[Rfam]
Rfam assigns this 287-nucleotide RNA sequence from Pseudogymnoascus sp. 23342-1-I1 to the family "A. fumigatus sRNA Afu_309". NCBI's taxonomy places the organism under Eukaryota, Opisthokonta, leotiomyceta, Thelebolales, Pseudogymnoascus.

RNA sequence: CUUUUCUUCUCACCACAAUACUCGUGAAUGGCUUGACACCAGCAUCCGCCUUCGGGCGCAUAAUGGAGUCGCUGUUCAGUUUGACUUCGAGGAGCCAUCAAAUCCCCAUGAUGUCAAUUAUCUAGUCAACGGGUCUGAGAUCGAUUAAGCACCUCGCAACCUCGAUGUUUUUGAGCCCCUCGCGGGAGCUCGACGGAGAGACGGGUGUCUUAAGUCACUAUAUUCCAAAUCUUUUCGCAGAUGCCGUCGGCUUAUGAUGCUAAAGACUCACCAUGGUGAAUACAGUU
Numbered sequence: 001c002u003u004u005u006c007u008u009c010u011c012a013c014c015a016c017a018a019u020a021c022u023c024g025u026g027a028a029u030g031g032c033u034u035g036a037c038a039c040c041a042g043c044a045u046c047c048g049c050c051u052u053c054g055g056g057c058g059c060a061u062a063a064u065g066g067a068g069u070c071g072c073u074g075u076u077c078a079g080u081u082u083g084a085c086u087u088c089g090a091g092g093a094g095c096c097a098u099c100a101a102a103u104c105c106c107c108a109u110g111a112u113g114u115c116a117a118u119u120a121u122c123u124a125g126u127c128a129a130c131g132g133g134u135c136u137g138a139g140a141u142c143g144a145u146u147a148a149g150c151a152c153c154u155c156g157c158a159a160c161c162u163c164g165a166u167g168u169u170u171u172u173g174a175g176c177c178c179c180u181c182g183c184g185g186g187a188g189c190u191c192g193a194c195g196g197a198g199a200g201a202c203g204g205g206u207g208u209c210u211u212a213a214g215u216c217a218c219u220a221u222a223u224u225c226c227a228a229a230u231c232u233u234u235u236c237g238c239a240g241a242u243g244c245c246g247u248c249g250g251c252u253u254a255u256g257a258u259g260c261u262a263a264a265g266a267c268u269c270a271c272c273a274u275g276g277u278g279a280a281u282a283c284a285g286u287u
Stems, first nucleotide, its partner, number of pairs: 018136001020134006026077006034071004039066003044061002047058004082128005091115002094112001096110001148208001153205004167194001169193002173191004177186003215279007230266005237260003243251003

For this family Rfam cites "Small ncRNA transcriptome analysis from Aspergillus fumigatus suggests a novel mechanism for regulation of protein synthesis" (Jochl et al., Nucleic Acids Res, 2008).
The base pairs follow the family's consensus structure, which was predicted with WAR.
A search with the family's covariance model found it, with a score of 86 bits.